[Rfam]
RNA sequence: AGCGCCACACAGGUGGGCCGACGGUCGACUCCGGUGGCGACAGGAGUUGUGUUCACUCCGGAAAGCGACCU
Number, nucleotide and partner (000 for none) at each position: 001a000002g000003c039004g038005c037006c036007a035008c034009a000010c000011a000012g000013g000014u000015g000016g000017g000018c000019c000020g000021a000022c000023g000024g000025u000026c000027g000028a000029c000030u000031c000032c000033g000034g008035u007036g006037g005038c004039g003040a000041c000042a000043g059044g058045a057046g056047u055048u000049g000050u000051g000052u000053u000054c000055a047056c046057u045058c044059c043060g000061g000062a000063a000064a000065g000066c000067g000068a000069c000070c000071u000
Shown here is a 71-nucleotide RNA from Rhodococcus jostii, a member of the family "hya RNA". Pairs were carried over by alignment from the consensus structure, which is taken from published work. Lineage of the source: Bacteria > Bacillati > Actinomycetota > Nocardiaceae > Rhodococcus jostii.